Nucleotides: 075
Base pairs, nucleotide, nucleotide: 001075002074003073004072005071006070013022014021015020024062025061026060027058028057031056032055033054037049038048
Number, partner (000 for none) and nucleotide at each position: 001075c002074c003073u004072c005071u006070g007000g008000a009000g010000a011000g012000a013022c014021c015020a016000g017000g018000u019000a020015u021014g022013g023000c024062g025061c026060c027058g028057a029000a030000g031056g032055g033054g034000c035000a036000a037049g038048c039000c040000c041000g042000u043000u044000a045000u046000g047000g048038g049037u050000g051000u052000a053000u054033c055032u056031c057028u058027c059000a060026g061025g062024c063000a064000a065000a066000a067000g068000g069000a070006c071005a072004g073003a074002g075001g
Source information
Rfam assigns this 75-nucleotide RNA from Thermoclostridium stercorarium to the family "Glycine riboswitch aptamer". The base pairs follow the family's consensus structure.